[Rfam]
RNA sequence: GCCGAGCUAGUCUCGUGUUUCGUCUGUCCUGGCUGCUCGCCAGUCAGGCUCUUGCAAAUGAGAAAUUCGGAGAAAUCUUCCAUUAAGCAACCCGCCAGUGCCAAUUGGUGCUGACCGGUGCUGCCCGUGAGGGCCAGGCGUGGUUUCACGUCCGCAAACGGCAGAAGAAACAUCGGGGCAAGAUCGUCCCUUACGGGGACUUCCUUGGUUUUCCCAUGGGAGAGUCGUUGCGAAGAUUGUGUAUCCUCGUUAGAGGAGGGCACUUCAGUGCAAUGCGCGGCGUGUUUAUGGGUGUCUUUAUCUUUGAUGGAGGCAUCCAGCGCAAUUCAAUUCCGAUCAUCCUGGGGGGAC
Dot-bracket structure: .(((...[.[[.[...........(.....(((((.....)))))..........)...........(((((......((.........................................((.((.....)).))((((((....))))))....((((((.............(((..................................)))........)))))).....))......................................].]].].(((((................................))))).......))))).......)))......
Rfam assigns this 351-nucleotide sequence from Ascosphaera apis to the family "Nuclear RNase P". It scores 31 bits against the family's covariance model. Rfam classes the family as a ribozyme. The base pairs follow the family's consensus structure, which is taken from published work.